[Rfam]
The family of this 133-nucleotide RNA sequence from Triplophysa rosa is "Small nucleolar RNA SNORA9". About the family: ACA9 is a member of the H/ACA class of snoRNA that guide the sites of modification of uridines to pseudouridines. Its family is annotated with RNA processing and nucleolus in the Gene Ontology. The family's RNA type in Rfam is H/ACA-box small nucleolar RNA. The family has 36 seed sequences and 1,202 matches in Rfam 15.1. The family's consensus secondary structure was predicted with PFOLD. Taxonomically the source falls in Triplophysa (Eukaryota, Vertebrata, Clupeocephala, Nemacheilidae).
RNA sequence: AUGCAGGCUGAUCAGCGAGGUUGAGUCUGAAGUGACUCUGUCCUUUCCUCUUAUGUCUGCUAGAUUGAUGUGGGGUGGUUUGAGGCCAUGCUGUGUCCAUCCCACAGCACGGUUAUAGAAACCCCAGACAAGA
Numbered sequence: 001a002u003g004c005a006g007g008c009u010g011a012u013c014a015g016c017g018a019g020g021u022u023g024a025g026u027c028u029g030a031a032g033u034g035a036c037u038c039u040g041u042c043c044u045u046u047c048c049u050c051u052u053a054u055g056u057c058u059g060c061u062a063g064a065u066u067g068a069u070g071u072g073g074g075g076u077g078g079u080u081u082g083a084g085g086c087c088a089u090g091c092u093g094u095g096u097c098c099a100u101c102c103c104a105c106a107g108c109a110c111g112g113u114u115a116u117a118g119a120a121a122c123c124c125c126a127g128a129c130a131a132g133a
Base pairs, nucleotide, nucleotide: 003060004059005058006057007056008055018044019043020042023038024037025036026035027034071126072125073124074123075122086112087111089109090108091107093105094104095103